About this RNA:
The family of this 141-nucleotide RNA sequence from Anisodus acutangulus is "MIR7993 microRNA precursor family". The base pairs follow the family's consensus structure, which was predicted with RNAalifold. Gene Ontology terms of the family: RISC complex and miRNA-mediated post-transcriptional gene silencing. NCBI's taxonomy places the organism under Eukaryota, Streptophyta, Magnoliopsida, Solanoideae, Anisodus.
[Rfam]
RNA sequence: AUAAGUUAACCACAUAAAAUAUGUCACAUCCUUUAAUCAUACACAUCAAUCUCAAACGGAACAUGCAUGAGGUUUUACGGCUUAUUGUGGUUAAUGCCUAUAAUUAAAGGAGACAACAUGUUUUAUGUGGUUAACUUAUCU
Number, nucleotide and partner (000 for none) at each position: 001a139002u138003a137004a136005g135006u134007u133008a132009a131010c130011c129012a128013c127014a126015u125016a124017a123018a122019a121020u120021a119022u118023g117024u116025c000026a000027c000028a000029u111030c110031c109032u108033u107034u106035a105036a104037u103038c000039a101040u100041a099042c000043a000044c096045a095046u094047c000048a000049a091050u090051c089052u000053c000054a000055a000056a000057c000058g000059g000060a000061a000062c000063a000064u000065g000066c000067a000068u000069g000070a000071g000072g000073u000074u000075u000076u000077a000078c000079g000080g000081c000082u000083u000084a000085u000086u000087g000088u000089g051090g050091u049092u000093a000094a046095u045096g044097c000098c000099u041100a040101u039102a000103a037104u036105u035106a034107a033108a032109g031110g030111a029112g000113a000114c000115a000116a024117c023118a022119u021120g020121u019122u018123u017124u016125a015126u014127g013128u012129g011130g010131u009132u008133a007134a006135c005136u004137u003138a002139u001140c000141u000